[Rfam]
RNA sequence: ACUUGAAUUACGCUUAAUUUUCAGAUAUUUCAAUCUGAGAAGCGGGGGAACCAAUCAAUUGGGGCGAAUCACUCCUUCUGGAGUGUAGGGUACCAUCUUACCCGAGUCCGUCAGCUAACCCCGUCAGCAGUGGAUGGGUCUAUUU
Numbered sequence: 001a002c003u004u005g006a007a008u009u010a011c012g013c014u015u016a017a018u019u020u021u022c023a024g025a026u027a028u029u030u031c032a033a034u035c036u037g038a039g040a041a042g043c044g045g046g047g048g049a050a051c052c053a054a055u056c057a058a059u060u061g062g063g064g065c066g067a068a069u070c071a072c073u074c075c076u077u078c079u080g081g082a083g084u085g086u087a088g089g090g091u092a093c094c095a096u097c098u099u100a101c102c103c104g105a106g107u108c109c110g111u112c113a114g115c116u117a118a119c120c121c122c123g124u125c126a127g128c129a130g131u132g133g134a135u136g137g138g139u140c141u142a143u144u145u
Stems, first nucleotide, its partner, number of pairs: 012128003018041009042124006052061002062109003070085004088103004